Rfam assigns this 134-nucleotide sequence from Panthera leo to the family "Small nucleolar RNA SNORA31". The organism belongs to Panthera, within Eukaryota. From the family's description: ACA31 (SNORA31) belongs to the H/ACA class of snoRNAs which are thought to guide the sites of modification of uridines to pseudouridines. ACA31 is predicted to guide the pseudouridylation of U3713 in 28S rRNA and U218 in 18S rRNA. This family includes the mouse homologue snoMBI-161.

RNA sequence: AUGCAUCUAUUUGACAGAUUUGGAGUAGUCACUUUCUGCUGCUAAGGCUUCCACUAGAGAUGCAAGAAAAAAGUGUCCUCAUGCUUUGUGUCUGUCUGAGUGUGGCAGUCAAGAUUGAAUGGGGCAAUACAGGG
Numbered sequence: 001a002u003g004c005a006u007c008u009a010u011u012u013g014a015c016a017g018a019u020u021u022g023g024a025g026u027a028g029u030c031a032c033u034u035u036c037u038g039c040u041g042c043u044a045a046g047g048c049u050u051c052c053a054c055u056a057g058a059g060a061u062g063c064a065a066g067a068a069a070a071a072a073g074u075g076u077c078c079u080c081a082u083g084c085u086u087u088g089u090g091u092c093u094g095u096c097u098g099a100g101u102g103u104g105g106c107a108g109u110c111a112a113g114a115u116u117g118a119a120u121g122g123g124g125c126a127a128u129a130c131a132g133g134g
Stems, first nucleotide, its partner, number of pairs: 002064007012053002016050002019047002024040005076126001078124003084117001087114001089112001092108005
Its family is annotated with nucleolus and RNA processing in the Gene Ontology. The family's RNA type in Rfam is H/ACA-box small nucleolar RNA. The match comes from Rfam's covariance-model search (42 bits).